The family of this 75-nucleotide RNA sequence from Streptomyces chumphonensis is "ASpks TB sRNA". NCBI's taxonomy places the organism under Bacteria, Bacillati, Actinomycetes, Kitasatosporales, Streptomyces. It scores 70 bits against the family's covariance model. On this family, see Arnvig and Young, Mol Microbiol 2009: "Identification of small RNAs in Mycobacterium tuberculosis".
RNA sequence: CUUCAACGAACCGAGUCGCAGCGGCCGGUCCACGGGACGGUUCGCUCCGUAGGUCGUGAGCAGCGCCUGGGCCUC
Numbered sequence: 001c002u003u004c005a006a007c008g009a010a011c012c013g014a015g016u017c018g019c020a021g022c023g024g025c026c027g028g029u030c031c032a033c034g035g036g037a038c039g040g041u042u043c044g045c046u047c048c049g050u051a052g053g054u055c056g057u058g059a060g061c062a063g064c065g066c067c068u069g070g071g072c073c074u075c
Stems, first nucleotide, its partner, number of pairs: 015025003031071001033069001038065002043060001045058001047056001049054001